A. fumigatus sRNA Afu_254: a 150-nucleotide RNA from Penicillium flavigenum. The literature on the family includes a 2008 paper in Nucleic Acids Res by Jochl et al., "Small ncRNA transcriptome analysis from Aspergillus fumigatus suggests a novel mechanism for regulation of protein synthesis". The match comes from Rfam's covariance-model search (79 bits). The base pairs follow the family's consensus structure, which was predicted with WAR.
RNA sequence: AUCCAAAGCAAACACUACUUUCAAGCUUCUUUUUCAAGGUUCUUUACCUACCACAUUUAUAUCCAUCAUGUCUCCUUGCACCUGCAACUGCUGCUCUGGCGAGUGCAACUCCUGCUCUUGCUCCAGCUGCAAGGUAUGUCAUUGCUUGCU
Dot-bracket structure: ............................................................................(((....(((.....)))....)))...(((......((....))......)))....................